This 119-nucleotide sequence from Zingiber officinale belongs to the Rfam family "MIR408 microRNA precursor family".
[Rfam]
RNA sequence: AGAGGGCGAGGAGGGCAAGACGGGGACGAGGCAGAGCAUGGGACGGGGUCAACAACAAAUGCUAGGUUGCUGCUCUUUCCAUGCACUGCCUCUUCCCUGGCUCUCCCCUAUCUAGCUGG
Numbered sequence: 001a002g003a004g005g006g007c008g009a010g011g012a013g014g015g016c017a018a019g020a021c022g023g024g025g026a027c028g029a030g031g032c033a034g035a036g037c038a039u040g041g042g043a044c045g046g047g048g049u050c051a052a053c054a055a056c057a058a059a060u061g062c063u064a065g066g067u068u069g070c071u072g073c074u075c076u077u078u079c080c081a082u083g084c085a086c087u088g089c090c091u092c093u094u095c096c097c098u099g100g101c102u103c104u105c106c107c108c109u110a111u112c113u114a115g116c117u118g119g
Base pairs, nucleotide, nucleotide: 018102019101021099022098023097024096025095026094029091030090031089032088033087034086036084037083038082039081040080042079046075047074